[Rfam]
RNA sequence: CCUGAAAUUACCCAUCUCGAAUAGCGUUGUGACUGAGGUAACUGCGCAUCGAAUCUACUCAGCGGCGAGGCUAUUCAAGUAAGGUUAUUUUGGG
Numbered sequence: 001c002c003u004g005a006a007a008u009u010a011c012c013c014a015u016c017u018c019g020a021a022u023a024g025c026g027u028u029g030u031g032a033c034u035g036a037g038g039u040a041a042c043u044g045c046g047c048a049u050c051g052a053a054u055c056u057a058c059u060c061a062g063c064g065g066c067g068a069g070g071c072u073a074u075u076c077a078a079g080u081a082a083g084g085u086u087a088u089u090u091u092g093g094g
Base pairs, nucleotide, nucleotide: 001094002093003092004091005090006089007088008087010085011084012083016079017078019076020075021074022073023072024071025070027068028067029066030065033062034061035060036059037058
A member of the RNA family "mir-986 microRNA precursor family" from Drosophila melanogaster, 94 nucleotides long.
The base pairs follow the family's consensus structure, which was predicted with RNAalifold.